Actino-pnp RNA: a 70-nucleotide RNA sequence from Georgenia satyanarayanai. The organism belongs to Georgenia, within Bacteria. The family's RNA type in Rfam is cis-regulatory element. The base pairs follow the family's consensus structure, which is taken from published work.

[Rfam]
RNA sequence: GCCGGUUUUCGGUAGUGGCCCCCGGAAGACCGGUUCGCCGGUGGUCCGUGGGCCUCGAUCGAAGGCCGCC
Numbered sequence: 001g002c003c004g005g006u007u008u009u010c011g012g013u014a015g016u017g018g019c020c021c022c023c024g025g026a027a028g029a030c031c032g033g034u035u036c037g038c039c040g041g042u043g044g045u046c047c048g049u050g051g052g053c054c055u056c057g058a059u060c061g062a063a064g065g066c067c068g069c070c
Stems, first nucleotide, its partner, number of pairs: 001070001003068005009062005017054005023048004030044003